Rfam assigns this 201-nucleotide RNA sequence from Lentibacillus amyloliquefaciens to the family "Group II catalytic intron D1-D4-5". Rfam links the family to the GO term Group II intron splicing. Group II introns are found in rRNA, tRNA and mRNA of organelles in fungi, plants and protists, and also in mRNA in bacteria.
[Rfam]
RNA sequence: CUGAAGGGUUAUGUCGAGGAGUCGAAUGAUGAGGUAACACUCUGAAAGGCUUCCUCUGCGUCGAAUAGCACGUUGUUUAGUGAGAAGUAAUGUGUUAUAAAGCUCGGCUAAUAGGCAUGAAAACUUACCGUAACAGUCCGGCUGACGAAAGCCUACCCGAUGGGGAUGAUAUGUUACGGCAAUACGAUCGGGUGCCACUCC
Numbered sequence: 001c002u003g004a005a006g007g008g009u010u011a012u013g014u015c016g017a018g019g020a021g022u023c024g025a026a027u028g029a030u031g032a033g034g035u036a037a038c039a040c041u042c043u044g045a046a047a048g049g050c051u052u053c054c055u056c057u058g059c060g061u062c063g064a065a066u067a068g069c070a071c072g073u074u075g076u077u078u079a080g081u082g083a084g085a086a087g088u089a090a091u092g093u094g095u096u097a098u099a100a101a102g103c104u105c106g107g108c109u110a111a112u113a114g115g116c117a118u119g120a121a122a123a124c125u126u127a128c129c130g131u132a133a134c135a136g137u138c139c140g141g142c143u144g145a146c147g148a149a150a151g152c153c154u155a156c157c158c159g160a161u162g163g164g165g166a167u168g169a170u171a172u173g174u175u176a177c178g179g180c181a182a183u184a185c186g187a188u189c190g191g192g193u194g195c196c197a198c199u200c201c
Stems, first nucleotide, its partner, number of pairs: 018053006031043001033041002055192003061107004065098014114189002124178001126176002129147003135143002151174002154171002156165003